[Rfam]
RNA sequence: AGCAGAGUAGGACUGUGCGCGUUAAGUGCCGGAUGAACAGGGAGUUGUCAUCCGGACGAAAAGAAAGAUCUUGCGGUGCACAAUCCGCAUCCCGCUGCU
Numbered sequence: 001a002g003c004a005g006a007g008u009a010g011g012a013c014u015g016u017g018c019g020c021g022u023u024a025a026g027u028g029c030c031g032g033a034u035g036a037a038c039a040g041g042g043a044g045u046u047g048u049c050a051u052c053c054g055g056a057c058g059a060a061a062a063g064a065a066a067g068a069u070c071u072u073g074c075g076g077u078g079c080a081c082a083a084u085c086c087g088c089a090u091c092c093c094g095c096u097g098c099u
Base pairs, nucleotide, nucleotide: 001099002098003097004096005095010086011085012084014082015081016080017079018078019077020075021074022073026057027056029055030054031053032052033051034050035049036048040092041091042090044088061072062071063070064069
RNA: THF (Tetrahydrofolate) riboswitch aptamer